pan motif: a 98-nucleotide RNA from Priestia koreensis. Taxonomically the source falls in Priestia (Bacteria, Bacillota, Bacilli, Caryophanales). The base pairs follow the family's consensus structure, which is taken from published work. A search with the family's covariance model found it, with a score of 67 bits. By type it is a cis-regulatory element.
[Rfam]
RNA sequence: AGGGUAGUAUCGAAAGAACUGCACCUAUUAUCUGUAUUUUUUUAUGUGAAAUUAAAUAGGAUUCUGCCUUGAUCCAGAAUAGGGACUAGGACAGAGGG
Numbered sequence: 001a002g003g004g005u006a007g008u009a010u011c012g013a014a015a016g017a018a019c020u021g022c023a024c025c026u027a028u029u030a031u032c033u034g035u036a037u038u039u040u041u042u043u044a045u046g047u048g049a050a051a052u053u054a055a056a057u058a059g060g061a062u063u064c065u066g067c068c069u070u071g072a073u074c075c076a077g078a079a080u081a082g083g084g085a086c087u088a089g090g091a092c093a094g095a096g097g098g
Stems, first nucleotide, its partner, number of pairs: 001026003004022005010017002064094003067090003071086001073085003